[Rfam]
RNA sequence: GUCACUCUGGAAAGCAGAGCGGCGCCGGUGACCCCGGACGUCCGCCGCUCUCACCGACGGUGAAAGCCGGGCGUCCUCGGGCGGCCGGUGAAGCUCUCAGGUCGUGAUGACAGAGGGGGAGGC
Number, nucleotide and partner (000 for none) at each position: 001g000002u118003c117004a000005c115006u114007c113008u112009g111010g000011a000012a000013a000014g000015c000016a051017g050018a049019g048020c047021g046022g045023c044024g043025c000026c000027g000028g000029u000030g000031a000032c000033c000034c000035c000036g000037g000038a000039c000040g000041u000042c000043c024044g023045c022046c021047g020048c019049u018050c017051u016052c000053a102054c101055c100056g098057a097058c000059g000060g096061u000062g094063a000064a000065a000066g089067c088068c087069g086070g085071g000072c000073g000074u000075c000076c000077u000078c000079g000080g000081g000082c000083g000084g000085c070086c069087g068088g067089u066090g000091a000092a000093g000094c062095u000096c060097u057098c056099a000100g055101g054102u053103c000104g000105u000106g000107a000108u000109g000110a000111c009112a008113g007114a006115g005116g000117g003118g002119g000120a000121g000122g000123c000

Annotation:
The record is a 123-nucleotide RNA sequence from Streptomyces sp. UH6, which matches "Glycine riboswitch aptamer" in Rfam. Rfam's curators write: This family represents the bacterial glycine riboswitch.